[Rfam]
RNA sequence: UUGUCCGGGGAUCGCCCCCCGUCAGCGCGGAUGCGCCCACGGGGGCAAAUGGUG
Number, nucleotide and partner (000 for none) at each position: 001u000002u000003g000004u000005c000006c000007g000008g000009g000010g000011a000012u000013c000014g000015c000016c045017c044018c043019c042020c041021g040022u039023c000024a000025g036026c035027g034028c033029g000030g000031a000032u000033g028034c027035g026036c025037c000038c000039a022040c021041g020042g019043g018044g017045g016046c000047a000048a000049a000050u000051g000052g000053u000054g000